Rfam assigns this 46-nucleotide RNA sequence from Pelobacter propionicus to the family "Moco-II RNA". It is one of the family's seed sequences.
RNA sequence: UGCGCCCACUUCGUCCUCUGUACAGAGCAGACCCAACGAAACCCGC
Numbered sequence: 001u002g003c004g005c006c007c008a009c010u011u012c013g014u015c016c017u018c019u020g021u022a023c024a025g026a027g028c029a030g031a032c033c034c035a036a037c038g039a040a041a042c043c044c045g046c
Stems, first nucleotide, its partner, number of pairs: 011039004017031005